[Rfam]
Shown here is an 82-nucleotide sequence from Paenibacillus sp. OAS669, a member of the family "ZMP/ZTP riboswitch aptamer (pfl RNA motif)". The match comes from Rfam's covariance-model search (61 bits). The family's consensus secondary structure is taken from published work. The organism belongs to Paenibacillus, within Bacteria.
RNA sequence: UGAGCUAUGUGUAACUGGCGGAACAUGGGGAACCAUGAGGGAGCACAUAGGAUAUUUGUGGCCGUACGCCUGGGCUAAGGUA
Numbered sequence: 001u002g003a004g005c006u007a008u009g010u011g012u013a014a015c016u017g018g019c020g021g022a023a024c025a026u027g028g029g030g031a032a033c034c035a036u037g038a039g040g041g042a043g044c045a046c047a048u049a050g051g052a053u054a055u056u057u058g059u060g061g062c063c064g065u066a067c068g069c070c071u072g073g074g075c076u077a078a079g080g081u082a
Stems, first nucleotide, its partner, number of pairs: 005050008015040002017070004025036004059077005